RNA: Small nucleolar RNA SNORA33
Organism: Gulo gulo
RNA sequence: AAGCCAGCCAAUGAAUUGGCUUACCUGAAUGCCUGCAGGAAUUUAGGAAAGGCUGGUGGUAGUAAGCCAUGUUACCAGCCUUAAAGACAUUGAAGUCAUUAAGGUCCCUGAAAAUGGCUUUAAGA
Numbered sequence: 001a002a003g004c005c006a007g008c009c010a011a012u013g014a015a016u017u018g019g020c021u022u023a024c025c026u027g028a029a030u031g032c033c034u035g036c037a038g039g040a041a042u043u044u045a046g047g048a049a050a051g052g053c054u055g056g057u058g059g060u061a062g063u064a065a066g067c068c069a070u071g072u073u074a075c076c077a078g079c080c081u082u083a084a085a086g087a088c089a090u091u092g093a094a095g096u097c098a099u100u101a102a103g104g105u106c107c108c109u110g111a112a113a114a115u116g117g118c119u120u121u122a123a124g125a
Stems, first nucleotide, its partner, number of pairs: 003057005016039002019036002066118004078105007086097003